[Rfam]
RNA sequence: GGUAAUUGACCUUUUGCUAAAAGCAUACACCUCCUGUGUAUAACGCAAAAGUCAGCACAUCCUGUGCA
Numbered sequence: 001g002g003u004a005a006u007u008g009a010c011c012u013u014u015u016g017c018u019a020a021a022a023g024c025a026u027a028c029a030c031c032u033c034c035u036g037u038g039u040a041u042a043a044c045g046c047a048a049a050a051g052u053c054a055g056c057a058c059a060u061c062c063u064g065u066g067c068a
Stems, first nucleotide, its partner, number of pairs: 011051007026040005055067004